[Rfam]
RNA: terC RNA
RNA sequence: UCAUCGAGCCGGGCCCUCUGGCAGGCAAGGCGUUGCCUGCGAUGUCGGUCGCAAUG
Numbered sequence: 001u002c003a004u005c006g007a008g009c010c011g012g013g014c015c016c017u018c019u020g021g022c023a024g025g026c027a028a029g030g031c032g033u034u035g036c037c038u039g040c041g042a043u044g045u046c047g048g049u050c051g052c053a054a055u056g
Stems, first nucleotide, its partner, number of pairs: 006050002009048004021040008